[Rfam]
Notes
Small nucleolar RNA SNORD10: a 142-nucleotide RNA sequence from Marmota monax. It scores 119 bits against the family's covariance model.
RNA sequence: GCUCCAUGAUGAACCCCAUGCGUGUCAUCUGAGCCUGACUUCCCUGUUGUCUUAGCCCAGGUAGUGUUCUACUUCCUAGGCUGCUGCUGGCUGGCUUCCAGGGAGGUCCCAGGCAAAGGAUCAGUCCUUGUAUUCUGAGAGC
Number, nucleotide and partner (000 for none) at each position: 001g142002c141003u140004c139005c000006a000007u000008g000009a000010u000011g000012a000013a000014c000015c000016c000017c000018a000019u000020g000021c000022g000023u000024g000025u000026c000027a000028u000029c000030u000031g000032a000033g000034c000035c000036u000037g000038a000039c000040u105041u104042c103043c102044c101045u100046g099047u000048u000049g000050u000051c000052u000053u000054a000055g000056c000057c000058c000059a000060g000061g000062u000063a000064g000065u000066g000067u000068u000069c000070u000071a000072c000073u000074u000075c000076c000077u000078a000079g000080g000081c000082u000083g000084c000085u000086g000087c000088u000089g000090g000091c000092u000093g000094g000095c000096u000097u000098c000099c046100a045101g044102g043103g042104a041105g040106g000107u000108c000109c000110c000111a000112g000113g000114c000115a000116a000117a000118g000119g000120a000121u000122c000123a000124g000125u000126c000127c000128u000129u000130g000131u000132a000133u000134u000135c000136u000137g000138a000139g004140a003141g002142c001
Rfam classes the family as a C/D-box small nucleolar RNA.